[Rfam]
RNA: Y RNA
RNA sequence: AGUAGGUCCCAGUGCAGUGGUGUUUACAAGUAAUUGAUUACAACUAGUUAUAGAUUCCUUUGUUCUGUCUCCACUUCCACUGCCUCACUUGACCAGCCUUUA
Numbered sequence: 001a002g003u004a005g006g007u008c009c010c011a012g013u014g015c016a017g018u019g020g021u022g023u024u025u026a027c028a029a030g031u032a033a034u035u036g037a038u039u040a041c042a043a044c045u046a047g048u049u050a051u052a053g054a055u056u057c058c059u060u061u062g063u064u065c066u067g068u069c070u071c072c073a074c075u076u077c078c079a080c081u082g083c084c085u086c087a088c089u090u091g092a093c094c095a096g097c098c099u100u101u102a
Stems, first nucleotide, its partner, number of pairs: 002097002005094004011089001014086001016081005028064002032060002